[Rfam]
RNA sequence: GGGUGUUUUUGCUGCAUCGGGCAGCGGAAACAGGUCGUGCGUUGGUCGGGCCGCCGCG
Numbered sequence: 001g002g003g004u005g006u007u008u009u010u011g012c013u014g015c016a017u018c019g020g021g022c023a024g025c026g027g028a029a030a031c032a033g034g035u036c037g038u039g040c041g042u043u044g045g046u047c048g049g050g051c052c053g054c055c056g057c058g
Stems, first nucleotide, its partner, number of pairs: 005031010040058003044055003
RNA: nhaA-I RNA
Organism: Nitrobacter sp. Nb-311A